[Rfam]
RNA sequence: AUAGCCUUUAAACCGGUCCCGAGAGGCCGAAAAGGACGAAUAUAUAGAUGUGUUUCUAUAUAUCUAUGUUUUUAUGCCCUUUUGUCCUCUGUGAUAAAAGGGUAUUUAUU
Numbered sequence: 001a002u003a004g005c006c007u008u009u010a011a012a013c014c015g016g017u018c019c020c021g022a023g024a025g026g027c028c029g030a031a032a033a034g035g036a037c038g039a040a041u042a043u044a045u046a047g048a049u050g051u052g053u054u055u056c057u058a059u060a061u062a063u064c065u066a067u068g069u070u071u072u073u074a075u076g077c078c079c080u081u082u083u084g085u086c087c088u089c090u091g092u093g094a095u096a097a098a099a100g101g102g103u104a105u106u107u108a109u110u
Base pairs, nucleotide, nucleotide: 005035006034007033008032009031014029015028016027017026018025040071042069043068044067045066046065047064048063049062050061051060052059053058074105075104076103077102078101079100080099081098082097083096084095085094086093
Shown here is a 110-nucleotide RNA from Lederbergia galactosidilytica, a member of the family "PyrR binding site". The base pairs follow the family's consensus structure, which is taken from published work. The family's RNA type in Rfam is cis-regulatory element. Taxonomically the source falls in Lederbergia (Bacteria, Bacillota, Bacilli, Bacillaceae).